[Rfam]
The record is a 77-nucleotide RNA sequence from Crocodylus porosus, which matches "Mammalian CPEB3 ribozyme" in Rfam. It scores 40 bits against the family's covariance model. Rfam links the family to the GO term RNA nuclease activity. Taxonomically the source falls in Crocodylus (Eukaryota, Gnathostomata, Euteleostomi, Tetrapoda). The family's consensus secondary structure is taken from published work.

RNA sequence: AGUCACAUGUUUGAGACCAUGGCAGAAGCACUCACGGCGUGGCCUGUCAGAUUCCAAUUCAAUCUGCAAAUUCUGCU
Numbered sequence: 001a002g003u004c005a006c007a008u009g010u011u012u013g014a015g016a017c018c019a020u021g022g023c024a025g026a027a028g029c030a031c032u033c034a035c036g037g038c039g040u041g042g043c044c045u046g047u048c049a050g051a052u053u054c055c056a057a058u059u060c061a062a063u064c065u066g067c068a069a070a071u072u073c074u075g076c077u
Stems, first nucleotide, its partner, number of pairs: 015044001017042002021077007028040002048066006